The record is a 176-nucleotide RNA sequence from Oryza sativa, which matches "MIR807 microRNA precursor family" in Rfam. Rfam links the family to the GO terms miRNA-mediated post-transcriptional gene silencing and RISC complex. Taxonomically the source falls in Oryza sativa (Eukaryota, Viridiplantae, Streptophytina, Euphyllophyta).
RNA sequence: AAUCACACUAUCAAUGAAUUGAUUCACCCGUGAUAUGGCGUGGCUGUUCCACUUAUGACGAGGACGUGGCAUCUUAUUACCAGCCAUCACACGAAAUUAAUAGGAUGCCAUAUUCUCAUCCUAGGUGUAACAACUACGUCAUCUCACAUGUGAAUCCAUUUAUUGAUAGUGUGGUU
Numbered sequence: 001a002a003u004c005a006c007a008c009u010a011u012c013a014a015u016g017a018a019u020u021g022a023u024u025c026a027c028c029c030g031u032g033a034u035a036u037g038g039c040g041u042g043g044c045u046g047u048u049c050c051a052c053u054u055a056u057g058a059c060g061a062g063g064a065c066g067u068g069g070c071a072u073c074u075u076a077u078u079a080c081c082a083g084c085c086a087u088c089a090c091a092c093g094a095a096a097u098u099a100a101u102a103g104g105a106u107g108c109c110a111u112a113u114u115c116u117c118a119u120c121c122u123a124g125g126u127g128u129a130a131c132a133a134c135u136a137c138g139u140c141a142u143c144u145c146a147c148a149u150g151u152g153a154a155u156c157c158a159u160u161u162a163u164u165g166a167u168a169g170u171g172u173g174g175u176u
Base pairs, nucleotide, nucleotide: 001176002175003174004173005172006171007170009168010167011166012165013164014163015162017160018159019158021156022155023154024153025152026151027150030147031146032145033144035142036141037140038139039138041136042135043134045132046131047130048129051126052125054123055122057120058119063114064113069108070107071106072105073104074103075102076101077100078099079098086097087096
Dot-bracket structure: (((((((.(((((((.(((.(((((((..((((.(((((.(((.((((..((.((.((....((....(((((((((((......((........)))))))))))))....))....)).)).))..)))).))).))))).))))..))))))).))).))))))).)))))))